[Rfam]
RNA sequence: AAAAAAACAACCUGCAGUUCAUUAAUAACUGCAGGUUCUUUUUAUUUUCUAAAAAAGAAAAUAAAAAGAUAAAGGGAGAGGAGAAACCGGAGGAAGAACUUAUGGGGAAAUGUAAGUCUUCUCCGUAU
Dot-bracket structure: ..........(((((((((.......)))))))))(((((....((((((.....))))))..........)))))...........((((.((((.(((((..........)))))))))))))...
Numbered sequence: 001a002a003a004a005a006a007a008c009a010a011c012c013u014g015c016a017g018u019u020c021a022u023u024a025a026u027a028a029c030u031g032c033a034g035g036u037u038c039u040u041u042u043u044a045u046u047u048u049c050u051a052a053a054a055a056a057g058a059a060a061a062u063a064a065a066a067a068g069a070u071a072a073a074g075g076g077a078g079a080g081g082a083g084a085a086a087c088c089g090g091a092g093g094a095a096g097a098a099c100u101u102a103u104g105g106g107g108a109a110a111u112g113u114a115a116g117u118c119u120u121c122u123c124c125g126u127a128u
Stems, first nucleotide, its partner, number of pairs: 011035009036076005045061006088125004093121004098117005

This 128-nucleotide sequence from Gracilibacillus thailandensis belongs to the Rfam family "ylbH leader".
It scores 93 bits against the family's covariance model.
This family is a putative regulatory RNA structure that is found upstream of the ylbH gene in B. subtilis and related low GC Gram-positive bacteria.